About this RNA:
Rfam assigns this 38-nucleotide RNA sequence from Chenopodium quinoa to the family "Plastid psbT antisense RNA". Pairs were carried over by alignment from the consensus structure, which was predicted with LocARNA. About the family: Plastid-psbT-asRNA is an antisense RNA (asRNA) motif reported in Plastids It has been shown that psbT expression is controlled by two antisense RNAs originated from psbN transcription by the nuclear-encoded polymerase (NEP), in which the short antisense RNA hybridizes to psbT CDS, thereby stabilizing psbT transcript while blocking its translation during photooxidative stress. Lineage of the source: Eukaryota > Magnoliopsida > Gunneridae > Pentapetalae > Chenopodium.
RNA sequence: GUAGUUGGGUCUCCAAUUUUUUGGAAUGCGCCAAAUUC
Numbered sequence: 001g002u003a004g005u006u007g008g009g010u011c012u013c014c015a016a017u018u019u020u021u022u023g024g025a026a027u028g029c030g031c032c033a034a035a036u037u038c
Base pairs, nucleotide, nucleotide: 003018004017005016006015007014008013020035021034022033023032024031